[Rfam]
RNA sequence: UAUGCAAAGCACAUGAUGAGAAAGCACUGAAACCGACUCUGUAUGAGGUGCAUUCAAUCCAACACUGAGCUUUGUGUC
Dot-bracket structure: .(((((((((..........................................................))))))))).
Numbered sequence: 001u002a003u004g005c006a007a008a009g010c011a012c013a014u015g016a017u018g019a020g021a022a023a024g025c026a027c028u029g030a031a032a033c034c035g036a037c038u039c040u041g042u043a044u045g046a047g048g049u050g051c052a053u054u055c056a057a058u059c060c061a062a063c064a065c066u067g068a069g070c071u072u073u074g075u076g077u078c
Stems, first nucleotide, its partner, number of pairs: 002077009

This 78-nucleotide sequence from Lophotis ruficrista belongs to the Rfam family "Small nucleolar RNA SNORD69". Its family is annotated with nucleolus and RNA processing in the Gene Ontology. The source organism's lineage runs through Eukaryota, Bilateria, Chordata, Coelurosauria and Lophotis. Rfam 15.1 lists 524 matches to the family in 496 species. A reference for the family is Huttenhofer et al. (2001), "RNomics: an experimental approach that identifies 201 candidates for novel, small, non-messenger RNAs in mouse", EMBO J. Pairs were carried over by alignment from the consensus structure. The match comes from Rfam's covariance-model search (47 bits). About the family: snoRNA HBII-210 belongs to the C/D family of snoRNAs. It is the human orthologue of the mouse MBII-210 and is predicted to guide the 2'O-ribose methylation of large 28S rRNA on residue G4464.